[Rfam]
RNA sequence: GAUUCGCACUAGGGGCGUUUUUAUAAACUGAGAUGAGGGUAACCUCAGACCCUUUGAACCUGAUCCAGUUAAAACUGGCGUAGGAAAGUGUUACAUCGAUACA
Numbered sequence: 001g002a003u004u005c006g007c008a009c010u011a012g013g014g015g016c017g018u019u020u021u022u023a024u025a026a027a028c029u030g031a032g033a034u035g036a037g038g039g040u041a042a043c044c045u046c047a048g049a050c051c052c053u054u055u056g057a058a059c060c061u062g063a064u065c066c067a068g069u070u071a072a073a074a075c076u077g078g079c080g081u082a083g084g085a086a087a088g089u090g091u092u093a094c095a096u097c098g099a100u101a102c103a
Stems, first nucleotide, its partner, number of pairs: 006091005011053004017028004035046004059084004065078004